[Rfam]
RNA sequence: GGGCAUUCAGAAGGUUUGCUCUCUGGGCUACAAACAGAGAAUCUGAUUUCUCCUCAGCACCGCCCAGGGGAAAGUCCCCGGACCCGUGGCAGAAAGUGCCCUGGUUGGAUCCAGUGUUGACCUGCGUUACUCUAUCAGUGGCUAAGACGUUCAUGCGAACCGAGCCUUGAGAUCGCUUGUCGACUUUGUCAGAGUUCAUAGUAAUGCAAACAUUCUGCAUGUAACUCUUCAACAGAACGGGGCUCAUUCUCUGAAUGCG
Number, nucleotide and partner (000 for none) at each position: 001g000002g000003g258004c257005a256006u255007u254008c253009a252010g251011a250012a000013g000014g211015u210016u209017u208018g207019c206020u000021c000022u068023c067024u066025g065026g064027g063028c062029u000030a000031c000032a000033a000034a000035c000036a000037g052038a051039g050040a049041a048042u000043c000044u000045g000046a000047u000048u041049u040050c039051u038052c037053c000054u000055c000056a000057g000058c000059a000060c000061c000062g028063c027064c026065c025066a024067g023068g022069g000070g000071a000072a000073a244074g243075u000076c242077c241078c240079c239080g000081g000082a000083c000084c000085c000086g000087u000088g100089g099090c098091a097092g000093a000094a000095a000096g000097u091098g090099c089100c088101c114102u113103g112104g111105u000106u000107g000108g000109a000110u000111c104112c103113a102114g101115u000116g000117u183118u182119g181120a180121c179122c000123u000124g176125c175126g000127u000128u000129a000130c171131u170132c169133u000134a000135u000136c000137a000138g000139u000140g166141g165142c164143u000144a000145a000146g000147a000148c000149g160150u159151u158152c157153a000154u000155g000156c000157g152158a151159a150160c149161c000162g000163a000164g142165c141166c140167u000168u000169g132170a131171g130172a000173u000174c000175g125176c124177u000178u000179g121180u120181c119182g118183a117184c000185u000186u000187u000188g000189u000190c000191a000192g000193a000194g000195u000196u000197c000198a000199u000200a000201g000202u000203a000204a000205u000206g019207c018208a017209a016210a015211c014212a000213u000214u000215c000216u000217g000218c000219a000220u000221g000222u000223a000224a000225c000226u000227c000228u000229u000230c000231a000232a000233c000234a000235g000236a000237a000238c000239g079240g078241g077242g076243c074244u073245c000246a000247u000248u000249c000250u011251c010252u009253g008254a007255a006256u005257g004258c003259g000
A member of the RNA family "RNase MRP" from Cyprinodon variegatus, 259 nucleotides long.
It is annotated as a ribozyme.
The organism belongs to Cyprinodon, within Eukaryota.
The match comes from Rfam's covariance-model search (156 bits).